The family of this 137-nucleotide sequence from Dichanthelium oligosanthes is "MIR529 microRNA precursor family".
[Rfam]
RNA sequence: UCAUCAAGGCUAAAGGGAGAAGAGAGAGAGUACAGCCUUGCCAUGUACACACUUCAGAUAUCAUCAAUCUCUUAUGCAGUUAUAUGUGUGAGUGUGAGGCUGUACCCUCUCUCUUCUUCUCUUAGCUUUUUUGUUGC
Numbered sequence: 001u002c003a004u005c006a007a008g009g010c011u012a013a014a015g016g017g018a019g020a021a022g023a024g025a026g027a028g029a030g031u032a033c034a035g036c037c038u039u040g041c042c043a044u045g046u047a048c049a050c051a052c053u054u055c056a057g058a059u060a061u062c063a064u065c066a067a068u069c070u071c072u073u074a075u076g077c078a079g080u081u082a083u084a085u086g087u088g089u090g091a092g093u094g095u096g097a098g099g100c101u102g103u104a105c106c107c108u109c110u111c112u113c114u115u116c117u118u119c120u121c122u123u124a125g126c127u128u129u130u131u132u133g134u135u136g137c
Stems, first nucleotide, its partner, number of pairs: 005133002009126001012123002015120014030105012
Record summary: The literature on the family includes a 2008 paper in Genome Res by Zhu et al., "A diverse set of microRNAs and microRNA-like small RNAs in developing rice grains". The match comes from Rfam's covariance-model search (87 bits).